[Rfam]
RNA sequence: CUCGUUCUUUGCGCGGGAGCUCGACCCGCGACUGCCGUGGUGACCCAGUUCAUCGACGAACACCGGAACCGGUUCGGGGUCGAGCCGAUCUGUCGCGUGCUCACCGAGCACGGCGUCAUGAUCGCCCCG
Numbered sequence: 001c002u003c004g005u006u007c008u009u010u011g012c013g014c015g016g017g018a019g020c021u022c023g024a025c026c027c028g029c030g031a032c033u034g035c036c037g038u039g040g041u042g043a044c045c046c047a048g049u050u051c052a053u054c055g056a057c058g059a060a061c062a063c064c065g066g067a068a069c070c071g072g073u074u075c076g077g078g079g080u081c082g083a084g085c086c087g088a089u090c091u092g093u094c095g096c097g098u099g100c101u102c103a104c105c106g107a108g109c110a111c112g113g114c115g116u117c118a119u120g121a122u123c124g125c126c127c128c129g
Base pairs, nucleotide, nucleotide: 013029014028015027016026017025075129076128077127078126079125086124087123089121090120091118092117094115095114
RNA: ALIL pseudoknot